[Rfam]
RNA sequence: CAGGCGGAUAGGAACCAGACAGUAUCAUUGUGUUGUUUGGGCCGAAAACCGCCAAGAUCAUUGGGAUGUUUUAAAGGUCGUAUGUGUUACACUUUGUAACAUGUAUAUCACCAAAAUAUUCAACAGUG
Numbered sequence: 001c002a003g004g005c006g007g008a009u010a011g012g013a014a015c016c017a018g019a020c021a022g023u024a025u026c027a028u029u030g031u032g033u034u035g036u037u038u039g040g041g042c043c044g045a046a047a048a049c050c051g052c053c054a055a056g057a058u059c060a061u062u063g064g065g066a067u068g069u070u071u072u073a074a075a076g077g078u079c080g081u082a083u084g085u086g087u088u089a090c091a092c093u094u095u096g097u098a099a100c101a102u103g104u105a106u107a108u109c110a111c112c113a114a115a116a117u118a119u120u121c122a123a124c125a126g127u128g
Base pairs, nucleotide, nucleotide: 003053004052005051006050007049011043012042015040016039017038018037019036020035021034022033023032024031025030065120066119067118068117069116070115071114072113076112077111078110080106081105083103084102085101086100087099088098089097090096
This 128-nucleotide RNA from Teladorsagia circumcincta belongs to the Rfam family "Nematode snoRNA ceN39".
For this family Rfam cites "Systematic identification of non-coding RNA 2,2,7-trimethylguanosine cap structures in Caenorhabditis elegans" (Jia et al., BMC Mol Biol, 2007).
The base pairs follow the family's consensus structure, which was predicted with RNAalifold.
Its family is annotated with nucleolus and RNA processing in the Gene Ontology.